[Rfam]
RNA sequence: GUUGGUGUUUGUGAUGACUAAGCUUUUUUCCCCAACAGAUCGACCCUGUUGACUGUUGAUUUUAAGCCAAAUCUGUCUGACACACCAAC
Numbered sequence: 001g002u003u004g005g006u007g008u009u010u011g012u013g014a015u016g017a018c019u020a021a022g023c024u025u026u027u028u029u030c031c032c033c034a035a036c037a038g039a040u041c042g043a044c045c046c047u048g049u050u051g052a053c054u055g056u057u058g059a060u061u062u063u064a065a066g067c068c069a070a071a072u073c074u075g076u077c078u079g080a081c082a083c084a085c086c087a088a089c
Stems, first nucleotide, its partner, number of pairs: 001089008
Record summary
Small nucleolar SNORD12/SNORD106: an 89-nucleotide RNA sequence from Synaphobranchus kaupii. Gene Ontology terms of the family: RNA processing and nucleolus. On this family, see Huttenhofer et al., EMBO J 2001: "RNomics: an experimental approach that identifies 201 candidates for novel, small, non-messenger RNAs in mouse". The family's consensus secondary structure was predicted with RNAalifold. Clan: SNORD12 clan. The match comes from Rfam's covariance-model search (78 bits).